[Rfam]
RNA sequence: GAUUUUUCAGAAACAGAGCUUUCUAAAGUUU
Numbered sequence: 001g002a003u004u005u006u007u008c009a010g011a012a013a014c015a016g017a018g019c020u021u022u023c024u025a026a027a028g029u030u031u
Base pairs, nucleotide, nucleotide: 001031002030004028005027006026007025009024010023011022012021013020014018

The record is a 31-nucleotide sequence from Colius striatus, which matches "Iron response element II" in Rfam. A search with the family's covariance model found it, with a score of 31 bits. The literature on the family includes a 2003 paper in J Hepatol by Lymboussaki et al., "The role of the iron responsive element in the control of ferroportin1/IREG1/MTP1 gene expression". It is annotated as a cis-regulatory element. Its family is annotated with response to iron ion in the Gene Ontology. IRE, TFRC, SLC40A1, SDHB, SLC11A2, CDC42BPA, ACO2, ALAS2_H.SAPIENS, CDC14A, EPAS1, ALAS2, qoxD, Hao1, NDUFS1, transferrin, Aconitate. NCBI's taxonomy places the organism under Eukaryota, Eumetazoa, Archosauria, Dinosauria, Colius.